[Rfam]
RNA sequence: CUGAGGGAGGCUGUCAAACCGUUACCAUUACUGAGUUUUAGUAAUGGUAAGGGUUCUACGGCCUUCUCUCGA
Numbered sequence: 001c002u003g004a005g006g007g008a009g010g011c012u013g014u015c016a017a018a019c020c021g022u023u024a025c026c027a028u029u030a031c032u033g034a035g036u037u038u039u040a041g042u043a044a045u046g047g048u049a050a051g052g053g054u055u056c057u058a059c060g061g062c063c064u065u066c067u068c069u070c071g072a
Base pairs, nucleotide, nucleotide: 007065008064009063011061012060013059017055018054019053020052022050023049024048025047026046027045028044029043030042031041032040033039
RNA: mir-451 microRNA precursor family
Organism: Oreochromis niloticus